[Rfam]
RNA: drum RNA
RNA sequence: UGGCGAUGAAGUAGCAGACUGGUUCGGCAUCAGGCUGCUGUGGAGCCAAACCAUGGGUUAAGCGAUAACCACAAGCCGAAUAGAUUCACUCGAAUCGAAUGAAAACGCAAAAU
Numbered sequence: 001u002g003g004c005g006a007u008g009a010a011g012u013a014g015c016a017g018a019c020u021g022g023u024u025c026g027g028c029a030u031c032a033g034g035c036u037g038c039u040g041u042g043g044a045g046c047c048a049a050a051c052c053a054u055g056g057g058u059u060a061a062g063c064g065a066u067a068a069c070c071a072c073a074a075g076c077c078g079a080a081u082a083g084a085u086u087c088a089c090u091c092g093a094a095u096c097g098a099a100u101g102a103a104a105a106c107g108c109a110a111a112a113u
Stems, first nucleotide, its partner, number of pairs: 001048004011041007019033003024079004062108003083096004